The family of this 102-nucleotide RNA is "SAM-I/IV (S-adenosyl methionine) riboswitch aptamer".
The base pairs follow the family's consensus structure, which is taken from published work.
Its Rfam clan is "SAM clan".
The family has 417 seed sequences and 567 matches in Rfam 15.1.
The sequence is in the family's curated seed alignment.
RNA sequence: UCCACGCAUUAAGACUUGGGAGACCAAGCCAACCUGCCGGUCCAGGCAAGGUGGUUACGAGAAAUCGGAUGUGAGCUAUUUCAAGCUAACAAAUGGACUCUC
Numbered sequence: 001u002c003c004a005c006g007c008a009u010u011a012a013g014a015c016u017u018g019g020g021a022g023a024c025c026a027a028g029c030c031a032a033c034c035u036g037c038c039g040g041u042c043c044a045g046g047c048a049a050g051g052u053g054g055u056u057a058c059g060a061g062a063a064a065u066c067g068g069a070u071g072u073g074a075g076c077u078a079u080u081u082c083a084a085g086c087u088a089a090c091a092a093a094u095g096g097a098c099u100c101u102c
Base pairs, nucleotide, nucleotide: 006072007071008070009069010068016027017026018025019024028055029054030053033051034050035049036047037046038045040099043096074087075086076085077084